[Rfam]
RNA sequence: GUGAAGUUCCGCACCGGAGCACCCCGUGGAAAGGGCCGAUGCGGCGAAGUGGGUGGAUCACCGGCCCUUGCACGGGCAGGAGCACCAUGUUGCGUACGGCGUCUGGGAGUUGCACCUCCCAGGCGCCGUCG
Numbered sequence: 001g002u003g004a005a006g007u008u009c010c011g012c013a014c015c016g017g018a019g020c021a022c023c024c025c026g027u028g029g030a031a032a033g034g035g036c037c038g039a040u041g042c043g044g045c046g047a048a049g050u051g052g053g054u055g056g057a058u059c060a061c062c063g064g065c066c067c068u069u070g071c072a073c074g075g076g077c078a079g080g081a082g083c084a085c086c087a088u089g090u091u092g093c094g095u096a097c098g099g100c101g102u103c104u105g106g107g108a109g110u111u112g113c114a115c116c117u118c119c120c121a122g123g124c125g126c127c128g129u130c131g
Base pairs, nucleotide, nucleotide: 001093002092007047009044010043011042012041013040015038016037017036022033049088050087051086052085054084055083061080062079064077065076066075067074097128098127099126100125101124102123103122104121105120106119107118108117109116
Shown here is a 131-nucleotide sequence, a member of the family "Streptomyces RNA 6925".
Rfam's curators write: Identified by deep sequencing of transcriptome at the end of exponential growth phase. Sequencing size consistent with northern blot size. Streptomyces specific. Small 12 nt possible coding region observed.
The family has 4 seed sequences and 63 matches in Rfam 15.1.